[Rfam]
RNA sequence: UCAGUUACAAUCUAGCAUCUGGGGCUCACACAACGAGUAUCUGAUUACUCCCCAUACAUAUGCCCCGGGAAGGUCUGAGAAUUGGCCAAGCCAGCUGUUUGUUGCGGCUUCAUUUCCCAGCAGGAAACCUGUGUGAUUGCAGGGCGAAAGUACCAGAAAUCCUGCCACCAGGCGUUGCCAUCGUUCCAACCCAACGACCGCCGCUUGAAUGGCAUUGAAAUCUUUCGUGGCCAGCAUUUUAAGUGCGAUGUGCUUGCUGCCCUUGAGGGUAGAACUCAAUUCAGACUAAUCUGUGACUGA
Numbered sequence: 001u002c003a004g005u006u007a008c009a010a011u012c013u014a015g016c017a018u019c020u021g022g023g024g025c026u027c028a029c030a031c032a033a034c035g036a037g038u039a040u041c042u043g044a045u046u047a048c049u050c051c052c053c054a055u056a057c058a059u060a061u062g063c064c065c066c067g068g069g070a071a072g073g074u075c076u077g078a079g080a081a082u083u084g085g086c087c088a089a090g091c092c093a094g095c096u097g098u099u100u101g102u103u104g105c106g107g108c109u110u111c112a113u114u115u116c117c118c119a120g121c122a123g124g125a126a127a128c129c130u131g132u133g134u135g136a137u138u139g140c141a142g143g144g145c146g147a148a149a150g151u152a153c154c155a156g157a158a159a160u161c162c163u164g165c166c167a168c169c170a171g172g173c174g175u176u177g178c179c180a181u182c183g184u185u186c187c188a189a190c191c192c193a194a195c196g197a198c199c200g201c202c203g204c205u206u207g208a209a210u211g212g213c214a215u216u217g218a219a220a221u222c223u224u225u226c227g228u229g230g231c232c233a234g235c236a237u238u239u240u241a242a243g244u245g246c247g248a249u250g251u252g253c254u255u256g257c258u259g260c261c262c263u264u265g266a267g268g269g270u271a272g273a274a275c276u277c278a279a280u281u282c283a284g285a286c287u288a289a290u291c292u293g294u295g296a297c298u299g300a
Stems, first nucleotide, its partner, number of pairs: 001300004007294003012256001014254005021066005035050005075284005084232004113127005128143006144228007164213003257272006
RNA: Nuclear RNase P
Organism: Drosophila gunungcola